Record summary:
The record is a 48-nucleotide RNA sequence, which matches "Plastid-rpl16 group II-D1 intron" in Rfam. Gene Ontology term of the family: Group II intron splicing. Pairs were carried over by alignment from the consensus structure, which was predicted with LocARNA. For this family Rfam cites "Retrograde signaling in plants: A critical review focusing on the GUN pathway and beyond" (Richter et al., Plant Commun, 2023). Rfam 15.1 lists 1,446 matches to the family in 693 species.
RNA sequence: AAGAGCCUCGGGCCAAUAAAGACUAAGAACAUUGACUCAAAAACAAAU
Numbered sequence: 001a002a003g004a005g006c007c008u009c010g011g012g013c014c015a016a017u018a019a020a021g022a023c024u025a026a027g028a029a030c031a032u033u034g035a036c037u038c039a040a041a042a043a044c045a046a047a048u
Stems, first nucleotide, its partner, number of pairs: 008040001010038003014034004
Dot-bracket structure: .......(.(((.((((.............)))).))).)........